The record is a 38-nucleotide RNA sequence from Castor canadensis, which matches "XIST RNA A repeat" in Rfam.
Lineage of the source: Eukaryota > Bilateria > Eutheria > Euarchontoglires > Castor.
A search with the family's covariance model found it, with a score of 52 bits.
By type it is a small RNA.
The family has 54 seed sequences and 900 matches in Rfam 15.1.
RNA sequence: CUGCCCAACGGGGCUGUGGAUACCUGCUUUUUAUUUUU
Numbered sequence: 001c002u003g004c005c006c007a008a009c010g011g012g013g014c015u016g017u018g019g020a021u022a023c024c025u026g027c028u029u030u031u032u033a034u035u036u037u038u
Stems, first nucleotide, its partner, number of pairs: 003014004017026003